[Rfam]
Record summary
The family of this 63-nucleotide RNA sequence from Bacillus sp. FJAT-50079 is "Bacillaceae-1 RNA". The source organism's lineage runs through Bacteria, Bacillati, Caryophanales, Bacillaceae and Bacillus. A search with the family's covariance model found it, with a score of 51 bits.
RNA sequence: CUGUAAGGAACGAAGCCUAAAAUCGCCGCCUCGUGUGGCAACGGCUUCGUGAACUUCCGAAGC
Numbered sequence: 001c002u003g004u005a006a007g008g009a010a011c012g013a014a015g016c017c018u019a020a021a022a023u024c025g026c027c028g029c030c031u032c033g034u035g036u037g038g039c040a041a042c043g044g045c046u047u048c049g050u051g052a053a054c055u056u057c058c059g060a061a062g063c
Stems, first nucleotide, its partner, number of pairs: 011049007025039005054062003
Dot-bracket structure: ..........(((((((.......(((((.....)))))...)))))))....(((...))).